Rfam assigns this 113-nucleotide sequence from Nelumbo nucifera to the family "Plastid-psbA-1 3UTR RNA".
It is annotated as a cis-regulatory element.
The match comes from Rfam's covariance-model search (95 bits).
The organism belongs to Nelumbo, within Eukaryota.
Rfam's curators write: Plastid psbA-1 is a non-coding RNA (ncRNA) present in plastids. It was identified in inverted repeat sequences in the 3 prime untranslate region (3UTR) of photosystem II quinone-binding protein (psbA).
RNA sequence: UUGAAGCUCCAUCUACAAAUGGAUAAGGCUUUGGUCUUAGUGUAUACGAGUCAUUGAAGUUGAAGGAACAAUAUCCAAUUUCUUGUUCUAGGAAGAAGGAUUUAUUUUCCCUC
Numbered sequence: 001u002u003g004a005a006g007c008u009c010c011a012u013c014u015a016c017a018a019a020u021g022g023a024u025a026a027g028g029c030u031u032u033g034g035u036c037u038u039a040g041u042g043u044a045u046a047c048g049a050g051u052c053a054u055u056g057a058a059g060u061u062g063a064a065g066g067a068a069c070a071a072u073a074u075c076c077a078a079u080u081u082c083u084u085g086u087u088c089u090a091g092g093a094a095g096a097a098g099g100a101u102u103u104a105u106u107u108u109c110c111c112u113c
Stems, first nucleotide, its partner, number of pairs: 008023005062113002065110004070106004080097005